[Rfam]
RNA sequence: UGAUUAAAGGGUCAAAAGGUAUCAUCAAUGCAUGCUUGCAUGCAAUUCGAUGUAUCCCUUAAUGACCCACACUUCACCGAGAAAGUAGCCAUUUACUGCGAAAGCGAAGGAAAUUAGCCCUAUUUCAAGAUAGAGUCAGAUUACAUGAAUGCAUUACAUGUAGUAAUCUGAUUAAUCA
Numbered sequence: 001u002g003a004u005u006a007a008a009g010g011g012u013c014a015a016a017a018g019g020u021a022u023c024a025u026c027a028a029u030g031c032a033u034g035c036u037u038g039c040a041u042g043c044a045a046u047u048c049g050a051u052g053u054a055u056c057c058c059u060u061a062a063u064g065a066c067c068c069a070c071a072c073u074u075c076a077c078c079g080a081g082a083a084a085g086u087a088g089c090c091a092u093u094u095a096c097u098g099c100g101a102a103a104g105c106g107a108a109g110g111a112a113a114u115u116a117g118c119c120c121u122a123u124u125u126c127a128a129g130a131u132a133g134a135g136u137c138a139g140a141u142u143a144c145a146u147g148a149a150u151g152c153a154u155u156a157c158a159u160g161u162a163g164u165a166a167u168c169u170g171a172u173u174a175a176u177c178a
Base pairs, nucleotide, nucleotide: 001178002177003176004175005174006173007172010067011066012065013064016060017059018058019057021055022054023052024051025050026049027047028046029045030043031042032041033040034039071136072135073134074133076131078129081126082125083124084123088118089117091114092113093112094111138169139168140167141166142165143164144163149159150158151157
Dot-bracket structure: (((((((..((((..((((.((((((((((((((....))))).))).)))).)).))))...))))...((((.(.(..((((...((.((((................))))..))....))))..).).)))).(((((((....(((.....)))...)))))))..)))))))
Annotation
This 178-nucleotide RNA from Eshraghiella crossota belongs to the Rfam family "Clostridiales-1 RNA". It scores 86 bits against the family's covariance model. The source organism's lineage runs through Bacteria, Bacillota, Lachnospiraceae, Eshraghiella and Eshraghiella crossota. The family has 194 seed sequences and 1,172 matches in Rfam 15.1.